[Rfam]
RNA: Histone 3' UTR stem-loop
RNA sequence: CAAAAGGCUCCUUUAGGAGCCACCAAGUUUGCAAAAGUCAAUGAC
Numbered sequence: 001c002a003a004a005a006g007g008c009u010c011c012u013u014u015a016g017g018a019g020c021c022a023c024c025a026a027g028u029u030u031g032c033a034a035a036a037g038u039c040a041a042u043g044a045c
Stems, first nucleotide, its partner, number of pairs: 006021006